Description: A member of the RNA family "c-di-AMP riboswitch aptamer (ydaO/yuaA leader)" from Thermobrachium celere, 129 nucleotides long. From the family's description: This family represents a conserved RNA structure found upstream of the ydaO and yuaA genes in Bacillus subtilis and related genes in other bacteria. The ydaO/yuaA element is thought to act as a genetic 'off' switch for the ydaO and yuaA genes in its native state. The pairing is the family consensus, mapped onto this sequence.

RNA sequence: AUGAUAAUAUUGCCGAAUCCCAUAAGGGUACGGAGGAACCAAGUUUUUGGGGUGAAGCUAUUUAAAAUAGCGGGGACACCUUCUCCCUAACCCGUCAGCUAACUCCGGAGGCGUAGAAGGAGUGGUGUA
Number, nucleotide and partner (000 for none) at each position: 001a000002u000003g000004a000005u000006a000007a000008u000009a000010u000011u113012g112013c111014c110015g000016a000017a000018u000019c028020c027021c000022a000023u000024a000025a000026g000027g020028g019029u000030a000031c107032g106033g105034a104035g103036g000037a000038a000039c000040c049041a048042a000043g000044u000045u000046u000047u000048u041049g040050g093051g092052g091053u000054g000055a000056a000057g000058c070059u069060a068061u067062u000063u000064a000065a000066a000067a061068u060069a059070g058071c000072g000073g087074g086075g085076a084077c000078a000079c000080c000081u000082u000083c000084u076085c075086c074087c073088u000089a000090a000091c052092c051093c050094g000095u000096c000097a000098g000099c000100u000101a000102a000103c035104u034105c033106c032107g031108g000109a000110g014111g013112c012113g011114u000115a000116g000117a000118a000119g000120g000121a000122g000123u000124g000125g000126u000127g000128u000129a000